[Rfam]
RNA: Streptomyces-metH RNA
RNA sequence: CCGUCCGCCCCGUGGGACGCCCACCCCUUCGUCGGCCGGCCCGGUUAGUCUGGCCCCGUGCGCCUUCCACCCGAAGACGCAAAGCCGACAGCCGUCGCACUCCAGGGAGCACAUCCAUG
Numbered sequence: 001c002c003g004u005c006c007g008c009c010c011c012g013u014g015g016g017a018c019g020c021c022c023a024c025c026c027c028u029u030c031g032u033c034g035g036c037c038g039g040c041c042c043g044g045u046u047a048g049u050c051u052g053g054c055c056c057c058g059u060g061c062g063c064c065u066u067c068c069a070c071c072c073g074a075a076g077a078c079g080c081a082a083a084g085c086c087g088a089c090a091g092c093c094g095u096c097g098c099a100c101u102c103c104a105g106g107g108a109g110c111a112c113a114u115c116c117a118u119g
Base pairs, nucleotide, nucleotide: 059081060080061079062078064076065075066074067073084098085097087096088095089094